[Rfam]
RNA: c-di-AMP riboswitch aptamer (ydaO/yuaA leader)
RNA sequence: GUCCUUAAAAAGCCGAAUCCCCAAAGCUGCUUUGGGGUACGGAGGAACCAUUUUUUGGGGUGAAUCGAAUUCAGAAGUCAGAGGUUAGGAGUUAGAAUUCCAUGGAAUUCAAAGCCGAAUUCCGGCAACUAAUUCGAUGACCGGCUACUGAAAUCGUAGGGUUAUCUUUUACCGAACCCGUCAGCUAACUCCGGAGGCGUAAAAGAAAGGGGAA
Numbered sequence: 001g002u003c004c005u006u007a008a009a010a011a012g013c014c015g016a017a018u019c020c021c022c023a024a025a026g027c028u029g030c031u032u033u034g035g036g037g038u039a040c041g042g043a044g045g046a047a048c049c050a051u052u053u054u055u056u057g058g059g060g061u062g063a064a065u066c067g068a069a070u071u072c073a074g075a076a077g078u079c080a081g082a083g084g085u086u087a088g089g090a091g092u093u094a095g096a097a098u099u100c101c102a103u104g105g106a107a108u109u110c111a112a113a114g115c116c117g118a119a120u121u122c123c124g125g126c127a128a129c130u131a132a133u134u135c136g137a138u139g140a141c142c143g144g145c146u147a148c149u150g151a152a153a154u155c156g157u158a159g160g161g162u163u164a165u166c167u168u169u170u171a172c173c174g175a176a177c178c179c180g181u182c183a184g185c186u187a188a189c190u191c192c193g194g195a196g197g198c199g200u201a202a203a204a205g206a207a208a209g210g211g212g213a214a
Stems, first nucleotide, its partner, number of pairs: 012198003019037006040193005049057002058179003066156003159173002162171001
Dot-bracket structure: ...........(((....((((((.......))))))..(((((....((.....))(((.....(((.....................................................................................)))..((.(........)))...))).........)))))..)))................